[Rfam]
RNA sequence: UCCCGGUUGGUGUAGUCCGGCAGCACGGCGGACUUUGGAUCCGCAUGCCCAGGUUCGAGUCCUGGACCGGGAG
Numbered sequence: 001u002c003c004c005g006g007u008u009g010g011u012g013u014a015g016u017c018c019g020g021c022a023g024c025a026c027g028g029c030g031g032a033c034u035u036u037g038g039a040u041c042c043g044c045a046u047g048c049c050c051a052g053g054u055u056c057g058a059g060u061c062c063u064g065g066a067c068c069g070g071g072a073g
Stems, first nucleotide, its partner, number of pairs: 001072007010026004028044005049065005
The record is a 73-nucleotide sequence from Amycolatopsis rhizosphaerae, which matches "tRNA" in Rfam.
It is annotated as a transfer RNA.
NCBI's taxonomy places the organism under Bacteria, Bacillati, Actinomycetota, Actinomycetes, Amycolatopsis.
The base pairs follow the family's consensus structure, which is taken from published work.
From the family's description: Transfer RNA (tRNA) molecules are approximately 80 nucleotides in length.